RNA sequence: CGGAAAUACACUGGCUAAGGGAAUUCGGCAAAUUGGCUCCGUAACUUCGGGAGAAGGAGUGCCUGCUGUGAAGACAGCAGGUCGCAGUGACCAGGGAGCUCCAACUGUCUAAUAACAACAUAGGAGAUCGCAAACCCGAAAGGGCUGGUACGAUCUCUGAAUCCUGCCCAGUGCAGGUACCUGAAACUCCGGUACAACGGAAAGAAGGGCCUGUAAACGGCGGGGGUAACUAUGACCCUCUUAAGGUAGCGUAGUACCUUGUCGCUUAAUUGGCGACUUGCAUGAAUGGAUCAAUGAGAGCUCUACUGUCCCUAGCCAGAAUCCGGUGAAGCUUACAUUCUAGUGCAGAGUCUAGAGA
Dot-bracket structure: ((((......(((((((.(((..............(((((....(....).....)))))(((((((((....)))))))))(...).......(((((((((..(((.........)))..(((((((((...(((....)))...)..))))))))..((((.(((..(((((((..(((.....((((......)))).....))))))))..)))))((((((.......))))))(...)...............((((((.....))))))..........))))...)).)))))))....))).)))))))..)))).............(((((........)))))..
Numbered sequence: 001c002g003g004a005a006a007u008a009c010a011c012u013g014g015c016u017a018a019g020g021g022a023a024u025u026c027g028g029c030a031a032a033u034u035g036g037c038u039c040c041g042u043a044a045c046u047u048c049g050g051g052a053g054a055a056g057g058a059g060u061g062c063c064u065g066c067u068g069u070g071a072a073g074a075c076a077g078c079a080g081g082u083c084g085c086a087g088u089g090a091c092c093a094g095g096g097a098g099c100u101c102c103a104a105c106u107g108u109c110u111a112a113u114a115a116c117a118a119c120a121u122a123g124g125a126g127a128u129c130g131c132a133a134a135c136c137c138g139a140a141a142g143g144g145c146u147g148g149u150a151c152g153a154u155c156u157c158u159g160a161a162u163c164c165u166g167c168c169c170a171g172u173g174c175a176g177g178u179a180c181c182u183g184a185a186a187c188u189c190c191g192g193u194a195c196a197a198c199g200g201a202a203a204g205a206a207g208g209g210c211c212u213g214u215a216a217a218c219g220g221c222g223g224g225g226g227u228a229a230c231u232a233u234g235a236c237c238c239u240c241u242u243a244a245g246g247u248a249g250c251g252u253a254g255u256a257c258c259u260u261g262u263c264g265c266u267u268a269a270u271u272g273g274c275g276a277c278u279u280g281c282a283u284g285a286a287u288g289g290a291u292c293a294a295u296g297a298g299a300g301c302u303c304u305a306c307u308g309u310c311c312c313u314a315g316c317c318a319g320a321a322u323c324c325g326g327u328g329a330a331g332c333u334u335a336c337a338u339u340c341u342a343g344u345g346c347a348g349a350g351u352c353u354a355g356a357g358a
Stems, first nucleotide, its partner, number of pairs: 001325004011319007019311003036060005045050001061082009083087001095304007102296002106120003123158008131148001135144003161291004166221003171218002173214005180209003188201004222240006241245001261277006339356005
Record summary: Archaeal large subunit ribosomal RNA: a 358-nucleotide part of an RNA from Methanosalsum zhilinae. The literature on the family includes a 2002 paper in BMC Bioinformatics by Cannone et al., "The comparative RNA web (CRW) site: an online database of comparative sequence and structure information for ribosomal, intron, and other RNAs". The organism belongs to Methanosalsum zhilinae, within Archaea.